[Rfam]
RNA sequence: UACUCAGCAUAUUUGAUAGUAUGCGGUUGAAUAUGGUUAGCAUUAGCUAAUUAAAGAAAGAGUAG
Number, nucleotide and partner (000 for none) at each position: 001u000002a063003c062004u061005c060006a000007g024008c023009a022010u021011a020012u019013u018014u000015g000016a000017u000018a013019g012020u011021a010022u009023g008024c007025g000026g000027u000028u000029g000030a000031a000032u000033a000034u053035g052036g051037u050038u049039a048040g047041c000042a000043u000044u000045a000046g000047c040048u039049a038050a037051u036052u035053a034054a000055a000056g000057a000058a000059a000060g005061a004062g003063u002064a000065g000

This 65-nucleotide RNA from Lactobacillus helveticus belongs to the Rfam family "emrB-Lactobacillus RNA". NCBI's taxonomy places the organism under Bacteria, Bacilli, Lactobacillaceae, Lactobacillus, Lactobacillus helveticus. The base pairs follow the family's consensus structure, which is taken from published work.